Source information: Rfam assigns this 109-nucleotide RNA from Apostasia shenzhenica to the family "Small nucleolar RNA snoR100". Rfam links the family to the GO terms RNA processing and nucleolus. The match comes from Rfam's covariance-model search (80 bits). The family has 9 seed sequences and 1,851 matches in Rfam 15.1. It is annotated as an H/ACA-box small nucleolar RNA. For this family Rfam cites "Experimental RNomics: identification of 140 candidates for small non-messenger RNAs in the plant Arabidopsis thaliana" (Marker et al., Curr Biol, 2002).
[Rfam]
RNA sequence: GGAAGAAGGCGGCAUGGCAACGUGCACGGAUAUGGACUGCGGUCUGCAUGUCUGCUAGCCGUGAUGCCGUCGGGCCUUGAUCUGGCUGGCCUGGAUUUGACCCACAAUU
Numbered sequence: 001g002g003a004a005g006a007a008g009g010c011g012g013c014a015u016g017g018c019a020a021c022g023u024g025c026a027c028g029g030a031u032a033u034g035g036a037c038u039g040c041g042g043u044c045u046g047c048a049u050g051u052c053u054g055c056u057a058g059c060c061g062u063g064a065u066g067c068c069g070u071c072g073g074g075c076c077u078u079g080a081u082c083u084g085g086c087u088g089g090c091c092u093g094g095a096u097u098u099g100a101c102c103c104a105c106a107a108u109u
Base pairs, nucleotide, nucleotide: 012025013024014023015022041091042090043089044088050081051080052079054075055074056073